[Rfam]
RNA: A. fumigatus sRNA Afu_254
Organism: Monascus purpureus
RNA sequence: AUCUCGAUCCAACCUUUAAGAAACAGUCCGUUUUCUUCAAAAAACCAACCAUCAACAUGUCUCCCUGCUCCUGCAACUGCUGCUCCGGCAACUGCUCUUCUUGCUCUUGCUCCAGCUGCUCUGUAAGCUCUCCCACCAA
Numbered sequence: 001a002u003c004u005c006g007a008u009c010c011a012a013c014c015u016u017u018a019a020g021a022a023a024c025a026g027u028c029c030g031u032u033u034u035c036u037u038c039a040a041a042a043a044a045c046c047a048a049c050c051a052u053c054a055a056c057a058u059g060u061c062u063c064c065c066u067g068c069u070c071c072u073g074c075a076a077c078u079g080c081u082g083c084u085c086c087g088g089c090a091a092c093u094g095c096u097c098u099u100c101u102u103g104c105u106c107u108u109g110c111u112c113c114a115g116c117u118g119c120u121c122u123g124u125a126a127g128c129u130c131u132c133c134c135a136c137c138a139a
Base pairs, nucleotide, nucleotide: 066090067089068088069087073083074082075081094119095118103110104109